[Rfam]
RNA sequence: CUCCCGUAGGGAAGCGAAGACCCCGUGGAGCUUGACUGCAGGCUGCUAUUGGGGUUUGGUCGUCGGUGUAAAGUGUAGGCGGGAGCUUUCGAAGCCAGGCCGCCAGGUCUGGUGGAGGUGACCAUGUAACACCGCCCACCCUCGACCGAGUUCCUGACUACGCGAGUAGAACAGUAGCAGUUGGGCAGUUUCGCUGGGGCGGCAGCCCCUCGAAAACUUAUCGAGGGGGUCCAAUGGUCGGCUUAGGCGGGUCAGAAAUCCGCCGGAAAGGACAAGGCCAGAAGCCGGCCUAACUGUGUCGUUACCUCAGGGCGACGCAGGGACGAAAGUCAGGCCUAGCGAACCUCGAUGUCCUCCUUGUUGGGGGCUCGAGAUGACAGAAAAGCUACCCCGGGGAUAACAGAGUGGUCACGGGCAAGAGCCCGUAUCGACCCCGUGGCUUGCUACCUCGAUGUCGGCUCUUCGCAUCCUGGCCGUGCAGCAGCGGCCAAGGGUAGGGUUGUUCGCCCGUUAAAGCGGAUCGUGAGCUGGGUUUAGACCGUCGUGAGACAGGUCGGACGCUAUCUUGCGGGAGUGCU
Numbered sequence: 001c002u003c004c005c006g007u008a009g010g011g012a013a014g015c016g017a018a019g020a021c022c023c024c025g026u027g028g029a030g031c032u033u034g035a036c037u038g039c040a041g042g043c044u045g046c047u048a049u050u051g052g053g054g055u056u057u058g059g060u061c062g063u064c065g066g067u068g069u070a071a072a073g074u075g076u077a078g079g080c081g082g083g084a085g086c087u088u089u090c091g092a093a094g095c096c097a098g099g100c101c102g103c104c105a106g107g108u109c110u111g112g113u114g115g116a117g118g119u120g121a122c123c124a125u126g127u128a129a130c131a132c133c134g135c136c137c138a139c140c141c142u143c144g145a146c147c148g149a150g151u152u153c154c155u156g157a158c159u160a161c162g163c164g165a166g167u168a169g170a171a172c173a174g175u176a177g178c179a180g181u182u183g184g185g186c187a188g189u190u191u192c193g194c195u196g197g198g199g200c201g202g203c204a205g206c207c208c209c210u211c212g213a214a215a216a217c218u219u220a221u222c223g224a225g226g227g228g229g230u231c232c233a234a235u236g237g238u239c240g241g242c243u244u245a246g247g248c249g250g251g252u253c254a255g256a257a258a259u260c261c262g263c264c265g266g267a268a269a270g271g272a273c274a275a276g277g278c279c280a281g282a283a284g285c286c287g288g289c290c291u292a293a294c295u296g297u298g299u300c301g302u303u304a305c306c307u308c309a310g311g312g313c314g315a316c317g318c319a320g321g322g323a324c325g326a327a328a329g330u331c332a333g334g335c336c337u338a339g340c341g342a343a344c345c346u347c348g349a350u351g352u353c354c355u356c357c358u359u360g361u362u363g364g365g366g367g368c369u370c371g372a373g374a375u376g377a378c379a380g381a382a383a384a385g386c387u388a389c390c391c392c393g394g395g396g397a398u399a400a401c402a403g404a405g406u407g408g409u410c411a412c413g414g415g416c417a418a419g420a421g422c423c424c425g426u427a428u429c430g431a432c433c434c435c436g437u438g439g440c441u442u443g444c445u446a447c448c449u450c451g452a453u454g455u456c457g458g459c460u461c462u463u464c465g466c467a468u469c470c471u472g473g474c475c476g477u478g479c480a481g482c483a484g485c486g487g488c489c490a491a492g493g494g495u496a497g498g499g500u501u502g503u504u505c506g507c508c509c510g511u512u513a514a515a516g517c518g519g520a521u522c523g524u525g526a527g528c529u530g531g532g533u534u535u536a537g538a539c540c541g542u543c544g545u546g547a548g549a550c551a552g553g554u555c556g557g558a559c560g561c562u563a564u565c566u567u568g569c570g571g572g573a574g575u576g577c578u
Base pairs, nucleotide, nucleotide: 001574002573003572004571005570006569007568008567010566011565012564014561015560022395023394024393025392027391028390029387030386031385032384033383035189036188037187038186042181043180044179045178046177047176048175051154052153053152054151055150056149057148058147059146060145061144062143065140066139067138068137078136079135080134081133082132085119086118087117097110098109099108100107101106158169159168160167161166192205193203194202195201206228207227208226209225210224211223231334232333237289238288239287240286241285242284243269244268246264247263248262249261250260251259270279271278294320295319296318297317298316299315300314301313302312322331324329345373346372347371348370349369351368353367354366355365356364404445405444406443408442409439410438411437412436413435414434415433419429420428456531457529458528459527460526461523462520463519464518465517466516469494470493473488474487475486476485477484497509498508499507500506537555538554539553540552541550542549543548
Dot-bracket structure: ((((((((.(((.((......((((.(((((((.((((...(((((((..((((((((((((..((((.........(((((..(((.........(((((....)))))......)))............)))))))))..))))))))))))...((((....)))).....)))))))....))))..((((.....))).)((((((...........))))))..((....((((((((.((((((.......))))))...))((......))....))))))....(((((((((.........))))))))).(.(....).).))..........(((((.(.((((.......)))))))))).........)))))..))))))........(((.((((((((...((.......))...)))))))..))))..........(((((((((((..((..(((((......)))))....))..((((.....))))......)))))..)..)))).).....(((((((....))).))))....))..)))))))))))....